The family of this 94-nucleotide RNA is "Rhodo-rpoB RNA". The sequence is in the family's curated seed alignment. By type it is a cis-regulatory element. Pairs were carried over by alignment from the consensus structure, which is taken from published work.
RNA sequence: GUUUCGGGCGAGGGAUCUUUGGGAGGUCUCUCUGGUAUGGAAGCGGAAACUGUUCCGAUCUGGCACUGCUCCGGACGCCCAAACCGGUGGCCGU
Numbered sequence: 001g002u003u004u005c006g007g008g009c010g011a012g013g014g015a016u017c018u019u020u021g022g023g024a025g026g027u028c029u030c031u032c033u034g035g036u037a038u039g040g041a042a043g044c045g046g047a048a049a050c051u052g053u054u055c056c057g058a059u060c061u062g063g064c065a066c067u068g069c070u071c072c073g074g075a076c077g078c079c080c081a082a083a084c085c086g087g088u089g090g091c092c093g094u
Stems, first nucleotide, its partner, number of pairs: 001044005010032008065094002068091002071087004